Rfam assigns this 150-nucleotide sequence from Comamonas kerstersii to the family "Group II catalytic intron D1-D4-7".
The base pairs follow the family's consensus structure.
RNA sequence: CCUUGUGUGCGACCACAAGUAGCCUACGGUGACGUGCAGGACCAGUAAUGGGUCUGUGCGAAGCUCACCUGACAAUGCUCCCUACGUUUGUAGCGAAGGCAAUCCGUGAGGAUGUCUUUGGAAACUGCCAGCAGAAGGGCGGUGAAGGGG
Number, nucleotide and partner (000 for none) at each position: 001c000002c019003u018004u017005g016006u015007g014008u000009g000010c000011g000012a000013c000014c007015a006016c005017a004018a003019g002020u000021a000022g000023c000024c000025u000026a000027c000028g069029g068030u067031g066032a065033c060034g059035u058036g057037c056038a055039g054040g053041a000042c051043c050044a049045g000046u000047a000048a000049u044050g043051g042052g000053u040054c039055u038056g037057u036058g035059c034060g033061a000062a000063g000064c000065u032066c031067a030068c029069c028070u000071g000072a000073c000074a000075a000076u000077g000078c000079u000080c000081c000082c093083u092084a091085c090086g000087u000088u000089u000090g085091u084092a083093g082094c120095g119096a118097a117098g000099g000100c000101a000102a000103u000104c111105c110106g000107u000108g000109a000110g105111g104112a000113u000114g000115u000116c000117u097118u096119u095120g094121g000122a000123a000124a143125c142126u141127g140128c139129c138130a000131g000132c000133a000134g000135a000136a000137g000138g129139g128140c127141g126142g125143u124144g000145a000146a000147g000148g000149g000150g000
Rfam describes the family as follows. Group II introns are found in rRNA, tRNA and mRNA of organelles in fungi, plants and protists, and also in mRNA in bacteria. Lineage of the source: Bacteria > Pseudomonadota > Betaproteobacteria > Burkholderiales > Comamonas.